[Rfam]
RNA sequence: GCCGACGACGCGGGGUGCCCCACCGGGGCUGAGAACACACCCGUGGAACCUGAUCUCGUUCACGCGAGCGGAGGGACGUCAUCGUGAACCACC
Numbered sequence: 001g002c003c004g005a006c007g008a009c010g011c012g013g014g015g016u017g018c019c020c021c022a023c024c025g026g027g028g029c030u031g032a033g034a035a036c037a038c039a040c041c042c043g044u045g046g047a048a049c050c051u052g053a054u055c056u057c058g059u060u061c062a063c064g065c066g067a068g069c070g071g072a073g074g075g076a077c078g079u080c081a082u083c084g085u086g087a088a089c090c091a092c093c
Base pairs, nucleotide, nucleotide: 007080008079009078010077011043012042013041014040016037017029018028019027020026021025049074050073051072055068056067057066058065
Shown here is a 93-nucleotide RNA from Kytococcus sp. HMSC28H12, a member of the family "TPP riboswitch aptamer (THI element)".